A member of the RNA family "Singlet oxygen resistance RNA X" from Ruegeria pomeroyi, 87 nucleotides long. It is annotated as a small RNA. The match comes from Rfam's covariance-model search (49 bits). SorX (RSs2461)like SorY is a singlet oxygen induced sRNA that counteracts oxidative stress by targeting mRNA for a transporter in Rhodobacter. It also has an impact on resistance against organic hydroperoxides. Rfam 15.1 lists 528 matches to the family in 356 species.

[Rfam]
RNA sequence: AGCACUCGAAGGCGAUGAUGCUUAAGCGCUUGUCACCUUCAUACCUCCCUGUUGGACUAUGGCCGAGCUUAGUGCUCGGCCUUUUUU
Numbered sequence: 001a002g003c004a005c006u007c008g009a010a011g012g013c014g015a016u017g018a019u020g021c022u023u024a025a026g027c028g029c030u031u032g033u034c035a036c037c038u039u040c041a042u043a044c045c046u047c048c049c050u051g052u053u054g055g056a057c058u059a060u061g062g063c064c065g066a067g068c069u070u071a072g073u074g075c076u077c078g079g080c081c082u083u084u085u086u087u
Base pairs, nucleotide, nucleotide: 008040009039010038011037012036014034015033016032017031018030061081062080063079064078065077066076067075068074
Taxonomically the source falls in Ruegeria pomeroyi (Bacteria, Pseudomonadati, Pseudomonadota, Rhodobacterales). On this family, see Peng et al., RNA Biol 2016: "Regulation of a polyamine transporter by the conserved 3' UTR-derived sRNA SorX confers resistance to singlet oxygen and organic hydroperoxides in Rhodobacter sphaeroides".